A member of the RNA family "FMN riboswitch aptamer (RFN element)" from Sulfitobacter sediminilitoris, 155 nucleotides long. NCBI's taxonomy places the organism under Bacteria, Pseudomonadati, Rhodobacterales, Roseobacteraceae, Sulfitobacter.
[Rfam]
RNA sequence: AAGCAUUCUCAGGGCGGGGUGGAAUUCCCCACCGGCGGUGGGAGGGCGCACCCUCAAGCCCGCGAGCGCAACGUGCCCCGUUUCGGGGCGCUUGGUCAGCAGACCCGGUCAAAGUCCGGGGCCGACGGUUAAAGUCCGGAUGAAAGAGAAUGCGC
Numbered sequence: 001a002a003g004c005a006u007u008c009u010c011a012g013g014g015c016g017g018g019g020u021g022g023a024a025u026u027c028c029c030c031a032c033c034g035g036c037g038g039u040g041g042g043a044g045g046g047c048g049c050a051c052c053c054u055c056a057a058g059c060c061c062g063c064g065a066g067c068g069c070a071a072c073g074u075g076c077c078c079c080g081u082u083u084c085g086g087g088g089c090g091c092u093u094g095g096u097c098a099g100c101a102g103a104c105c106c107g108g109u110c111a112a113a114g115u116c117c118g119g120g121g122c123c124g125a126c127g128g129u130u131a132a133a134g135u136c137c138g139g140a141u142g143a144a145a146g147a148g149a150a151u152g153c154g155c
Base pairs, nucleotide, nucleotide: 003153004152005151006150007149008148009147010146017029018028019027031135032134033124034123035063036062037061038060058122059121066100067099104120105119106118107117108116126138127137128136